[Rfam]
Nucleotides: 202
Stems, first nucleotide, its partner, number of pairs: 001202002004199005012190007020182012033169013072130002075127011
Number, partner (000 for none) and nucleotide at each position: 001202a002201a003000a004199c005198a006197g007196c008195c009000c010000c011000c012190u013189a014188u015187g016186u017185a018184u019000c020182g021181g022180a023179u024178u025177u026176u027175u028174g029173g030172c031171a032000a033169u034168u035167u036166u037165g038164g039163c040162c041161c042160c043159c044158a045157a046000a047000g048000c049000c050000a051000c052000u053000u054000u055000u056000g057000a058000c059000u060000u061000a062000a063000u064000c065000u066000u067000c068000g069000c070000u071000g072130a073129c074000g075127u076126g077125g078124c079123a080122c081121u082120c083119a084118c085117a086000u087000c088000c089000c090000u091000u092000a093000a094000g095000c096000g097000a098000g099000g100000c101000g102000g103000c104000a105000c106000a107000u108000g109000u110000c111000g112000a113000c114000c115000a116000u117085u118084g119083u120082g121081g122080g123079u124078g125077u126076c127075a128000c129073g130072u131000c132000a133000g134000c135000g136000a137000a138000g139000a140000c141000u142000a143000a144000g145000u146000c147000a148000a149000a150000a151000g152000c153000g154000g155000c156000c157045u158044u159043g160042g161041g162040g163039g164038c165037c166036a167035a168034a169033a170000c171031u172030g173029c174028c175027a176026a177025a178024g179023g180022u181021c182020c183000a184018a185017u186016a187015c188014a189013u190012a191000g192000g193000g194000g195008g196007g197006c198005u199004g200000u201002u202001u